[Rfam]
Background
Small nucleolar RNA SNORD58: a 61-nucleotide sequence from Trichechus manatus. The family's RNA type in Rfam is C/D-box small nucleolar RNA. The match comes from Rfam's covariance-model search (50 bits). The literature on the family includes a 2002 paper in Mol Cell Biol by Galardi et al., "Purified box C/D snoRNPs are able to reproduce site-specific 2'-O-methylation of target RNA in vitro". snoRNA U58 is found in introns 1, 3 and 6 of the ribosomal protein RPL17 gene in humans. The family's consensus secondary structure was predicted with PFOLD.
Nucleotides: 061
Stems, first nucleotide, its partner, number of pairs: 001060004
Number, partner (000 for none) and nucleotide at each position: 001060c002059u003058g004057c005000g006000a007000u008000g009000a010000u011000g012000g013000c014000a015000u016000u017000u018000c019000u020000u021000g022000g023000a024000c025000a026000c027000c028000u029000u030000u031000g032000g033000a034000u035000g036000a037000a038000u039000c040000a041000u042000g043000a044000a045000g046000a047000c048000a049000c050000a051000c052000u053000u054000u055000g056000a057004g058003c059002a060001g061000c